The record is a 210-nucleotide sequence from Dictyobacter aurantiacus, which matches "HNH endonuclease-associated RNA and ORF (HEARO) RNA" in Rfam. The match comes from Rfam's covariance-model search (154 bits). NCBI's taxonomy places the organism under Bacteria, Chloroflexota, Ktedonobacteria, Dictyobacteraceae, Dictyobacter.
[Rfam]
RNA sequence: GUCAAUAACCCCCUCCUGAAGGAGGAGGCUUGAAAAAGCCUGUAUUGACCAGACUCAGCUAGCAAUAGCUACGUUAGGAGCGAAUAGAUAGGUACCUGUGGGUGCGUUGCCAGCUCUCAGUUCUACGGUCAACGAUUAAACAGAUUGUCGGGGAAAAAUCAGUGUCGUUGGCAUCAAACCGCUCUAUAACAUUGUCGAGGCGAACAUUAC
Numbered sequence: 001g002u003c004a005a006u007a008a009c010c011c012c013c014u015c016c017u018g019a020a021g022g023a024g025g026a027g028g029c030u031u032g033a034a035a036a037a038g039c040c041u042g043u044a045u046u047g048a049c050c051a052g053a054c055u056c057a058g059c060u061a062g063c064a065a066u067a068g069c070u071a072c073g074u075u076a077g078g079a080g081c082g083a084a085u086a087g088a089u090a091g092g093u094a095c096c097u098g099u100g101g102g103u104g105c106g107u108u109g110c111c112a113g114c115u116c117u118c119a120g121u122u123c124u125a126c127g128g129u130c131a132a133c134g135a136u137u138a139a140a141c142a143g144a145u146u147g148u149c150g151g152g153g154a155a156a157a158a159u160c161a162g163u164g165u166c167g168u169u170g171g172c173a174u175c176a177a178a179c180c181g182c183u184c185u186a187u188a189a190c191a192u193u194g195u196c197g198a199g200g201c202g203a204a205c206a207u208u209a210c
Stems, first nucleotide, its partner, number of pairs: 001049007010028002012025002015022002029038003052196003057070005073190004078184005092126002096120003100116004107203005128172009140163002143160004148155001